[Rfam]
RNA sequence: UUCUUAUCAAGAGUGGUGGAGGGACUGGCCCUAUGAAACCCAGCAACCUAUAAUAGGUUUAUUAAGUAUAAGUGUAUAUUUCUUAUGCAAUAAUACCGUUAUGUUUGGUGCUAAAUCCUGCAGCUUUUAAGCUGGUAGAUGAGAG
Dot-bracket structure: ((((((((....(.(((...(((.[.[[)))......))))((((.((.((...................................................))..))))))...(]].](((((....)))))..)))))))))

Rfam assigns this 145-nucleotide sequence from Clostridium sartagoforme to the family "SAM riboswitch aptamer (S box leader)". The family's consensus secondary structure is taken from published work. It scores 82 bits against the family's covariance model. Rfam 15.1 lists 9,625 matches to the family in 4,158 species.